The family of this 75-nucleotide RNA sequence from Helicoverpa armigera is "mir-124 microRNA precursor family".

[Rfam]
RNA sequence: UCCUCCUCGCGUUCACUGCCGUUGCCAUUAUGUGUUAUUUGCAAAUCAUAAGGCACGCGGUGAAUGCCAAGAGAG
Numbered sequence: 001u002c003c004u005c006c007u008c009g010c011g012u013u014c015a016c017u018g019c020c021g022u023u024g025c026c027a028u029u030a031u032g033u034g035u036u037a038u039u040u041g042c043a044a045a046u047c048a049u050a051a052g053g054c055a056c057g058c059g060g061u062g063a064a065u066g067c068c069a070a071g072a073g074a075g
Stems, first nucleotide, its partner, number of pairs: 003073003009067008018058002026053001028051005